A member of the RNA family "Bacterial large signal recognition particle RNA" from Candidatus Epulonipiscioides saccharophilum, 264 nucleotides long. By type it is a non-coding RNA gene. The literature on the family includes a 2009 paper in RNA Biol by Rosenblad et al., "Kinship in the SRP RNA family". The family is grouped with related families in Rfam's "SRP clan".

[Rfam]
RNA sequence: CCGUGCUAGCUGGGGAGGUAGCGGUGCCCUGUACUUGCAAUCCGCUAGAGCAAGAGUGAUGCUAUGUCUGCGGCAGUGGUUUGUUUGGUCUGCCUUUGGAAAGUGGUGUUGAGAGUUCAGUCUUACGCAACAGGUGCUUAUGAAUCGUGUCAGGUCUUGACGGAAGCAGCACUAAGUAAGUUGAUUUGUGUGCCGUAAGGGCGCUGGAUUUGAGCUAACUACUGAAGUAACGCUUGUGAGUCAUUGUCAAAGCAAAGUGCACGG
Numbered sequence: 001c002c003g004u005g006c007u008a009g010c011u012g013g014g015g016a017g018g019u020a021g022c023g024g025u026g027c028c029c030u031g032u033a034c035u036u037g038c039a040a041u042c043c044g045c046u047a048g049a050g051c052a053a054g055a056g057u058g059a060u061g062c063u064a065u066g067u068c069u070g071c072g073g074c075a076g077u078g079g080u081u082u083g084u085u086u087g088g089u090c091u092g093c094c095u096u097u098g099g100a101a102a103g104u105g106g107u108g109u110u111g112a113g114a115g116u117u118c119a120g121u122c123u124u125a126c127g128c129a130a131c132a133g134g135u136g137c138u139u140a141u142g143a144a145u146c147g148u149g150u151c152a153g154g155u156c157u158u159g160a161c162g163g164a165a166g167c168a169g170c171a172c173u174a175a176g177u178a179a180g181u182u183g184a185u186u187u188g189u190g191u192g193c194c195g196u197a198a199g200g201g202c203g204c205u206g207g208a209u210u211u212g213a214g215c216u217a218a219c220u221a222c223u224g225a226a227g228u229a230a231c232g233c234u235u236g237u238g239a240g241u242c243a244u245u246g247u248c249a250a251a252g253c254a255a256a257g258u259g260c261a262c263g264g
Stems, first nucleotide, its partner, number of pairs: 001264006009057003012030004017025001019023001034054005062257002065255001068252002072248005078242007087233001091229002095226005103219002105216003113211009122199006128190002131188005136181006147172004155164003